[Rfam]
RNA sequence: UUGACGGUGAUCUCCCACCGGUCGUGCUCGCCGACGAGCGAGAGGUCGCCGAAGUGGUCGCCGCCGACCAGGGUCUCCAGCACCACGGGGUCGCCGAACUCGCCGGUGCCGAUCUCGUUGGCCUUGCCGUGCGCGAUCAGGUGGACGUGCUCGGCCGCGUCGCCCGCCUGCACGAUGGGCUCGCCCGCCGCGUACUCCCGCUGCUCGAAGCGGCCGGCGAGGUCGGCGAGCGGGGCGUCCUCCUCGAAGCCGCGGAGCAGCGGCAGCUCGCGCAGCUCCUGCGGGACCACCGAGAUCUCGCUCCCGGUGUUGGUGAAGGUGACCCGGCCGUCGCCCACCACGCAGCUGAGCCGGCGGUUCACCCGGUAGGUGCCGCCGGCGGUGCGCACCCAGGGCAGCAGGCGCAGCAGCCACCGCGAGGAGAUCUCCUGCAUCUGCGGCGGGGUCUUGGUGGUCGUCGCCAGGUUGCGCGCGGCCGCGGUCCCCAGGCUGAGUCGGGGCUGCGCGG
Numbered sequence: 001u002u003g004a005c006g007g008u009g010a011u012c013u014c015c016c017a018c019c020g021g022u023c024g025u026g027c028u029c030g031c032c033g034a035c036g037a038g039c040g041a042g043a044g045g046u047c048g049c050c051g052a053a054g055u056g057g058u059c060g061c062c063g064c065c066g067a068c069c070a071g072g073g074u075c076u077c078c079a080g081c082a083c084c085a086c087g088g089g090g091u092c093g094c095c096g097a098a099c100u101c102g103c104c105g106g107u108g109c110c111g112a113u114c115u116c117g118u119u120g121g122c123c124u125u126g127c128c129g130u131g132c133g134c135g136a137u138c139a140g141g142u143g144g145a146c147g148u149g150c151u152c153g154g155c156c157g158c159g160u161c162g163c164c165c166g167c168c169u170g171c172a173c174g175a176u177g178g179g180c181u182c183g184c185c186c187g188c189c190g191c192g193u194a195c196u197c198c199c200g201c202u203g204c205u206c207g208a209a210g211c212g213g214c215c216g217g218c219g220a221g222g223u224c225g226g227c228g229a230g231c232g233g234g235g236c237g238u239c240c241u242c243c244u245c246g247a248a249g250c251c252g253c254g255g256a257g258c259a260g261c262g263g264c265a266g267c268u269c270g271c272g273c274a275g276c277u278c279c280u281g282c283g284g285g286a287c288c289a290c291c292g293a294g295a296u297c298u299c300g301c302u303c304c305c306g307g308u309g310u311u312g313g314u315g316a317a318g319g320u321g322a323c324c325c326g327g328c329c330g331u332c333g334c335c336c337a338c339c340a341c342g343c344a345g346c347u348g349a350g351c352c353g354g355c356g357g358u359u360c361a362c363c364c365g366g367u368a369g370g371u372g373c374c375g376c377c378g379g380c381g382g383u384g385c386g387c388a389c390c391c392a393g394g395g396c397a398g399c400a401g402g403c404g405c406a407g408c409a410g411c412c413a414c415c416g417c418g419a420g421g422a423g424a425u426c427u428c429c430u431g432c433a434u435c436u437g438c439g440g441c442g443g444g445g446u447c448u449u450g451g452u453g454g455u456c457g458u459c460g461c462c463a464g465g466u467u468g469c470g471c472g473c474g475g476c477c478g479c480g481g482u483c484c485c486c487a488g489g490c491u492g493a494g495u496c497g498g499g500g501c502u503g504c505g506c507g508g
Base pairs, nucleotide, nucleotide: 006390007389008388009387012384014382015381018327020325021324022322023321024320025319028316029315035313037311038310039309040308045305048302050300051299052298055232058229059228060227061226062225063224065111066110068108077102079100080099083096086093118221119220122217123216127212130209131206133204134203135202140197143196144195154189156187157186159184160183161178165174166173234296236294241289244286245285251281252280254278256277257276258275260271261270262269329342330341331340351379352378353377354376355375356374357373360372361371362370363369391431392430393429394428395427397425399423403418404417405416407415437476438475440473442471444469447465448464449463450462451461452460477507478506480502481501482500484499485498486497488495

This 508-nucleotide sequence from Nocardiopsis composta belongs to the Rfam family "Saccharopolyspora sRNA 350". The organism belongs to Nocardiopsis, within Bacteria. The family's RNA type in Rfam is antisense RNA. The match comes from Rfam's covariance-model search (154 bits). Pairs were carried over by alignment from the consensus structure, which was predicted with RNAfold.